[Rfam]
RNA sequence: UAUUACCUACUUGGUACGUAGCCCCUUGUUUUUUUAACCUACAAAAGUAACAAGGGAGUUUCGGUCCGGGUGCUUAUGUCAGACCGCCAUGCUUUGCGGAAGGCAGAAACAACCGGCCGGGCACCCACCUGGGAGAGGUGGGUUGAUAAAAAGCUACGGGUUACGGCUUGGUGGGGAAAAC
Numbered sequence: 001u002a003u004u005a006c007c008u009a010c011u012u013g014g015u016a017c018g019u020a021g022c023c024c025c026u027u028g029u030u031u032u033u034u035u036a037a038c039c040u041a042c043a044a045a046a047g048u049a050a051c052a053a054g055g056g057a058g059u060u061u062c063g064g065u066c067c068g069g070g071u072g073c074u075u076a077u078g079u080c081a082g083a084c085c086g087c088c089a090u091g092c093u094u095u096g097c098g099g100a101a102g103g104c105a106g107a108a109a110c111a112a113c114c115g116g117c118c119g120g121g122c123a124c125c126c127a128c129c130u131g132g133g134a135g136a137g138g139u140g141g142g143u144u145g146a147u148a149a150a151a152a153g154c155u156a157c158g159g160g161u162u163a164c165g166g167c168u169u170g171g172u173g174g175g176g177a178a179a180a181c
Stems, first nucleotide, its partner, number of pairs: 003178002006175006013168003017165003029151004034146006054126003058122004063117001065116001067115003071111002079103002084099004
The family of this 181-nucleotide RNA sequence from Desulfotruncus arcticus is "6S / SsrS RNA". For this family Rfam cites "6S RNA regulates E. coli RNA polymerase activity" (Wassarman and Storz, Cell, 2000). Rfam's curators write: E. coli 6S RNA was the first non coding RNA to be sequenced, but its function was unknown until recently. It consists of 184 nucleotides that fold into an extended hairpin structure with a large single-stranded internal bulge. The 6S RNA specifically associates with RNA polymerase holoenzyme containing the sigma70 specificity factor. This interaction represses expression from a sigma70-dependent promoter during stationary phase. 6S RNA homologs have recently been identified in most bacterial genomes. Many Gram-positive species have two copies of 6S RNA. In Bacillus subtilis, both copies appear to interact with RNA polymerase holoenzyme containing the housekeeping sigma factor and be expressed during different stages of growth. In many proteobacteria, 6S RNA may be processed from a transcript encoding homologs of the E. coli YgfA protein which is a putative 5-formyltetrahydrofolate cycloligase activity. The family's consensus secondary structure is taken from published work. The match comes from Rfam's covariance-model search (69 bits). The family's RNA type in Rfam is non-coding RNA gene. Taxonomically the source falls in Desulfotruncus arcticus (Bacteria, Bacillota, Clostridia, Eubacteriales).